The family of this 169-nucleotide sequence from Oscillospiraceae bacterium Marseille-Q3528 is "Clostridiales-1 RNA". A search with the family's covariance model found it, with a score of 114 bits. Rfam 15.1 lists 1,172 matches to the family in 137 species. It is annotated as a small RNA.

Nucleotides: 169
Stems, first nucleotide, its partner, number of pairs: 001169007010067003017060002021056001022053008030043001032041003074124003078120003083115004091108007128159007139149004
Number, partner (000 for none) and nucleotide at each position: 001169u002168g003167a004166u005165a006164c007163c008000a009000g010067g011066g012065u013000g014000a015000a016000a017060a018059g019000g020000c021056c022053g023052c024051a025050u026049c027048c028047a029046c030043a031000g032041g033040a034039g035000c036000u037000u038000g039034c040033u041032c042000a043030u044000c045000a046029g047028u048027g049026g050025a051024u052023g053022c054000a055000a056021g057000a058000a059018c060017u061000c062000g063000g064000a065012a066011c067010c068000c069000g070000c071000c072000c073000c074124c075123c076122u077000a078120u079119a080118u081000g082000a083115g084114c085113a086112u087000a088000a089000a090000a091108g092107u093106g094105g095104g096103a097102u098000g099000u100000g101000a102097a103096u104095c105094c106093c107092a108091c109000g110000a111000u112086a113085u114084g115083c116000g117000a118080a119079u120078a121000g122076g123075g124074g125000c126000g127000a128159u129158g130157a131156u132155u133154g134153u135000g136000g137000g138000a139149g140148u141147g142146c143000g144000c145000a146142g147141c148140a149139c150000g151000a152000a153134g154133c155132a156131a157130u158129c159128a160000u161000c162000a163007g164006g165005u166004a167003u168002c169001a